[Rfam]
RNA: Flavo-1 RNA
Organism: Halpernia frigidisoli
RNA sequence: UUUUAGCCCCGAUUGCAAUGGAAAUCCUUUUUUGUUAUUGCGAUUGCGAUCAUUUUCAACGGAUUGCUUCGUUCCUCGCAAUGACGAAAAAGAUUGUAAUGGAAAGCGGGUACAAUA
Number, nucleotide and partner (000 for none) at each position: 001u000002u000003u000004u000005a000006g000007c000008c000009c109010c108011g107012a000013u105014u104015g000016c000017a000018a100019u099020g000021g000022a000023a095024a094025u093026c092027c000028u000029u090030u089031u088032u087033u086034g085035u084036u083037a082038u081039u080040g079041c078042g077043a076044u000045u000046g000047c000048g000049a000050u000051c000052a000053u000054u000055u000056u000057c000058a000059a000060c000061g000062g000063a000064u000065u000066g000067c000068u000069u000070c000071g000072u000073u000074c000075c000076u043077c042078g041079c040080a039081a038082u037083g036084a035085c034086g033087a032088a031089a030090a029091a000092g026093a025094u024095u023096g000097u000098a000099a019100u018101g000102g000103a000104a014105a013106g000107c011108g010109g009110g000111u000112a000113c000114a000115a000116u000117a000